[Rfam]
Rfam assigns this 112-nucleotide RNA sequence from Virgibacillus salarius to the family "TPP riboswitch aptamer (THI element)". Lineage of the source: Bacteria > Bacillati > Bacillota > Bacillaceae > Virgibacillus. Pairs were carried over by alignment from the consensus structure, which is taken from published work. The match comes from Rfam's covariance-model search (78 bits).
RNA sequence: CUUAACUACUAGGGGUGCCCAAUAUGUGGGCUGAGAGGAAACACGUGACGUUUCUAACUCUUAUGGACCUGAUCUGGUUAAUACCAGCGGAGGGAAGUAGUAGACGCAACGU
Numbered sequence: 001c002u003u004a005a006c007u008a009c010u011a012g013g014g015g016u017g018c019c020c021a022a023u024a025u026g027u028g029g030g031c032u033g034a035g036a037g038g039a040a041a042c043a044c045g046u047g048a049c050g051u052u053u054c055u056a057a058c059u060c061u062u063a064u065g066g067a068c069c070u071g072a073u074c075u076g077g078u079u080a081a082u083a084c085c086a087g088c089g090g091a092g093g094g095a096a097g098u099a100g101u102a103g104a105c106g107c108a109a110c111g112u
Base pairs, nucleotide, nucleotide: 006100007099008098009097010096011061012060013059014058017031018030019029020028021027038054039053040052041051042050068093069092070091074087075086076085077084